[Rfam]
Source information
The family of this 144-nucleotide RNA from Oryza sativa is "Small nucleolar RNA snoR136".
RNA sequence: AUCGUUACCGCUUCUCGAGGUUCAUGCUUAAGAGCUGGUUGUGGUUCUUGAGCUUUGGAAAGUGAAGCAAAAUACUUUGUGGUUCCUCUCGCUAUCCGGGGCAGAAUUCUCUUUGAUGUUACUGGACGUCGAGGAACUACAUUA
Numbered sequence: 001a002u003c004g005u006u007a008c009c010g011c012u013u014c015u016c017g018a019g020g021u022u023c024a025u026g027c028u029u030a031a032g033a034g035c036u037g038g039u040u041g042u043g044g045u046u047c048u049u050g051a052g053c054u055u056u057g058g059a060a061a062g063u064g065a066a067g068c069a070a071a072a073u074a075c076u077u078u079g080u081g082g083u084u085c086c087u088c089u090c091g092c093u094a095u096c097c098g099g100g101g102c103a104g105a106a107u108u109c110u111c112u113u114u115g116a117u118g119u120u121a122c123u124g125g126a127c128g129u130c131g132a133g134g135a136a137c138u139a140c141a142u143u144a
Base pairs, nucleotide, nucleotide: 002071004068005067008064010063011062012061013060016057017056024055026053027052028051029050030049033048034047082137083136084135085134086133087132088131090128091127095126096125097124098123099122105114
Dot-bracket structure: .(.((..(.((((..((......(.(((((..((............))))))).)))..)))))..))..)..........(((((((.((...(((((.....(........).......)))))))..))))))).......
The match comes from Rfam's covariance-model search (49 bits).
Gene Ontology terms of the family: RNA processing and nucleolus.